[Rfam]
The record is a 67-nucleotide RNA from Caenorhabditis brenneri, which matches "mir-7616 microRNA precursor family" in Rfam. Rfam links the family to the GO terms RISC complex and miRNA-mediated post-transcriptional gene silencing.
RNA sequence: UGUAGUCUCUAAUGUUCGAUCAGAAACGAAUCACGAAAUGAGUUCUGGUUGUCCUAGAAACUACGAA
Numbered sequence: 001u002g003u004a005g006u007c008u009c010u011a012a013u014g015u016u017c018g019a020u021c022a023g024a025a026a027c028g029a030a031u032c033a034c035g036a037a038a039u040g041a042g043u044u045c046u047g048g049u050u051g052u053c054c055u056a057g058a059a060a061c062u063a064c065g066a067a
Base pairs, nucleotide, nucleotide: 001065002064003063004062005061006060008058009057010056011055014054017051018050019049020048021047022046023045024044025043027042030039031038
Dot-bracket structure: ((((((.((((..(..(((((((((.(..((......))..))))))))))..))))).))))))..